Annotation
This 138-nucleotide RNA sequence from Miscanthus lutarioriparius belongs to the Rfam family "MIR398 microRNA precursor family". Its family is annotated with RISC complex and miRNA-mediated post-transcriptional gene silencing in the Gene Ontology. The family's consensus secondary structure was predicted with WAR. The source organism's lineage runs through Eukaryota, Liliopsida, Petrosaviidae, Poaceae and Miscanthus.

RNA sequence: GCAGUUCCGGCGGGGGCGGACUGGGAACACAUGGCGAUGAGAUGAGAGUGCUCAAUCGGAAUCGGUCGUGCUGGCCUGCUGGGCCGCCGCCGUUGAUCUUGUAUGCAUGUGUUCUCAGGUCGCCCCCGCGGGGCCUUC
Number, nucleotide and partner (000 for none) at each position: 001g000002c000003a000004g000005u000006u000007c132008c131009g000010g000011c128012g127013g126014g125015g000016g123017c122018g121019g120020a000021c000022u000023g116024g115025g114026a113027a112028c111029a110030c109031a108032u107033g000034g000035c000036g000037a000038u000039g000040a000041g000042a000043u000044g000045a000046g000047a000048g000049u000050g000051c000052u000053c000054a000055a000056u000057c000058g000059g000060a000061a000062u000063c000064g000065g000066u000067c000068g000069u000070g000071c000072u000073g000074g000075c000076c000077u000078g000079c000080u000081g000082g000083g000084c000085c000086g000087c000088c000089g000090c000091c000092g000093u000094u000095g000096a000097u000098c000099u000100u000101g000102u000103a000104u000105g000106c000107a032108u031109g030110u029111g028112u027113u026114c025115u024116c023117a000118g000119g000120u019121c018122g017123c016124c000125c014126c013127c012128g011129c000130g000131g008132g007133g000134c000135c000136u000137u000138c000